The family of this 192-nucleotide sequence from Halanaerobium sp. DL-01 is "Lysine riboswitch aptamer". From the family's description: Riboswitches are metabolite binding domains within certain messenger RNAs that serve as precision sensors for their corresponding targets.

RNA sequence: GGGUGAGGUAGAGGCGCAGAACUGAUCAGUAACUCUAAAGAUUUAAGAACCUAAUUGCUUUAGAGUGAAAGGCUGUUUUGCCGAAGCACAGUUUUUUCGGUUCAAAAAACUGCUGCUGGGUCUGUAUAUAAUAUAUGCAGGACUGUCAUUAUAAGUUCUAAUCCGGGCUUAUAAUGUUGCGCUAUCUCACAU
Number, nucleotide and partner (000 for none) at each position: 001g000002g000003g000004u000005g000006a187007g186008g185009u184010a183011g182012a000013g000014g000015c000016g081017c080018a079019g078020a077021a076022c075023u000024g073025a000026u000027c000028a000029g000030u000031a000032a066033c065034u064035c063036u062037a061038a060039a059040g000041a000042u000043u000044u000045a000046a000047g000048a000049a000050c000051c000052u000053a000054a000055u000056u000057g000058c000059u039060u038061u037062a036063g035064a034065g033066u032067g000068a000069a000070a000071g000072g000073c024074u000075g022076u021077u020078u019079u018080g017081c016082c000083g000084a000085a117086g116087c115088a114089c112090a111091g110092u109093u108094u107095u106096u105097u000098c000099g000100g000101u000102u000103c000104a000105a096106a095107a094108a093109a092110c091111u090112g089113c000114u088115g087116c086117u085118g144119g143120g000121u141122c140123u139124g138125u137126a136127u135128a134129u000130a000131a000132u000133a000134u128135a127136u126137g125138c124139a123140g122141g121142a000143c119144u118145g000146u000147c176148a175149u174150u173151a172152u171153a170154a169155g168156u167157u166158c000159u000160a000161a000162u000163c000164c000165g000166g157167g156168c155169u154170u153171a152172u151173a150174a149175u148176g147177u000178u000179g000180c000181g000182c011183u010184a009185u008186c007187u006188c000189a000190c000191a000192u000
The match comes from Rfam's covariance-model search (117 bits).